[Rfam]
RNA sequence: UUCGUCCUCAAAAGGAGUGCACACCACCACCAGCGUGCAUUUUUACUGGUGGUGGUGUGCACUCCUUUUGAGAACGAA
Numbered sequence: 001u002u003c004g005u006c007c008u009c010a011a012a013a014g015g016a017g018u019g020c021a022c023a024c025c026a027c028c029a030c031c032a033g034c035g036u037g038c039a040u041u042u043u044u045a046c047u048g049g050u051g052g053u054g055g056u057g058u059g060c061a062c063u064c065c066u067u068u069u070g071a072g073a074a075c076g077a078a
Base pairs, nucleotide, nucleotide: 001078002077003076004075005074007072008071009070010069011068012067013066014065015064016063017062018061019060020059021058022057023056024055025054026053027052028051030049031048032047035046036045037044